[Rfam]
RNA: S15-Flavobacteria ribosomal protein leader
Organism: Pontimicrobium aquaticum
RNA sequence: UAUCUUUGCGGCUUGAAUACGAAAACCGUAAUCAAGUACAUAAAAAUCAUUUAAAUAAUAUUGGAAUG
Number, nucleotide and partner (000 for none) at each position: 001u000002a000003u000004c000005u000006u000007u000008g000009c000010g000011g000012c000013u000014u034015g033016a032017a000018u030019a029020c000021g000022a000023a000024a000025a000026c000027c000028g000029u019030a018031a000032u016033c015034a014035a000036g000037u000038a000039c000040a000041u000042a000043a000044a000045a000046a000047u000048c000049a000050u000051u000052u000053a000054a000055a000056u000057a000058a000059u000060a000061u000062u000063g000064g000065a000066a000067u000068g000